[Rfam]
RNA sequence: GUGGGAAGCGCACGGCCGCAAAUCUGACUUGUCAUCCGGUUGGAUGGCUUGGGAUUGCGGAAGUGC
Number, nucleotide and partner (000 for none) at each position: 001g000002u000003g000004g000005g000006a000007a000008g000009c000010g066011c065012a064013c063014g000015g000016c060017c059018g058019c057020a056021a055022a000023u000024c053025u052026g000027a000028c000029u000030u000031g048032u047033c046034a045035u044036c043037c042038g000039g000040u000041u000042g037043g036044a035045u034046g033047g032048c031049u000050u000051g000052g025053g024054a000055u021056u020057g019058c018059g017060g016061a000062a000063g013064u012065g011066c010